[Rfam]
Nucleotides: 097
Stems, first nucleotide, its partner, number of pairs: 001097005008088001010086004016040003023036005044081005052070002055068003
Number, partner (000 for none) and nucleotide at each position: 001097c002096u003095g004094a005093c006000c007000g008088g009000a010086g011085c012084g013083u014000u015000c016040g017039g018038g019000u020000c021000g022000a023036u024035g025034u026033c027032g028000g029000u030000a031000u032027c033026g034025a035024c036023a037000g038018c039017c040016c041000a042000a043000u044081c045080u046079c047078c048077c049000u050000g051000g052070a053069g054000a055068c056067g057066c058000c059000u060000g061000a062000a063000a064000g065000g066057g067056c068055g069053c070052u071000g072000a073000a074000g075000a076000a077048g078047g079046g080045a081044g082000a083013g084012c085011g086010c087000a088008u089000a090000u091000c092000a093005g094004u095003c096002a097001g

Source information
The record is a 97-nucleotide RNA sequence, which matches "L4-Archaeoglobi ribosomal protein leades" in Rfam. It is annotated as a cis-regulatory leader. The family's consensus secondary structure is taken from published work. It is one of the family's seed sequences. A reference for the family is Eckert and Weinberg (2020), "Discovery of 20 novel ribosomal leader candidates in bacteria and archaea", BMC Microbiol.